[Rfam]
RNA sequence: UUAAUAAAUAGAGGUGCACUGAAGAAGAGUAUAUAGCAGGUGUUAAGAGGGAAACCCUCAAUACUGGUAUAAAAAGGCUGACGUGCCGAAGUUGUUGAACAGUUGUCGGUUGAACAGCUGGUGGUUUAGUGAAUAACUAAAUCACUGUCAUGGGCAAACUAAUCCAUGGAGCGCUAUUUGUUAA
Numbered sequence: 001u002u003a004a005u006a007a008a009u010a011g012a013g014g015u016g017c018a019c020u021g022a023a024g025a026a027g028a029g030u031a032u033a034u035a036g037c038a039g040g041u042g043u044u045a046a047g048a049g050g051g052a053a054a055c056c057c058u059c060a061a062u063a064c065u066g067g068u069a070u071a072a073a074a075a076g077g078c079u080g081a082c083g084u085g086c087c088g089a090a091g092u093u094g095u096u097g098a099a100c101a102g103u104u105g106u107c108g109g110u111u112g113a114a115c116a117g118c119u120g121g122u123g124g125u126u127u128a129g130u131g132a133a134u135a136a137c138u139a140a141a142u143c144a145c146u147g148u149c150a151u152g153g154g155c156a157a158a159c160u161a162a163u164c165c166a167u168g169g170a171g172c173g174c175u176a177u178u179u180g181u182u183a184a
Base pairs, nucleotide, nucleotide: 006179007178008177009176010175011174016086017085018084019083023079024078032071033070034069035068037066038065039064090119091118092117093116094115095114096113098111099110100109120146121145122144123143124142125141126140127139128138129137130136148169149168150167151166152165153164154163

Shown here is a 184-nucleotide RNA sequence from Anaerovirgula multivorans, a member of the family "Lysine riboswitch aptamer". The organism belongs to Anaerovirgula, within Bacteria. The match comes from Rfam's covariance-model search (111 bits).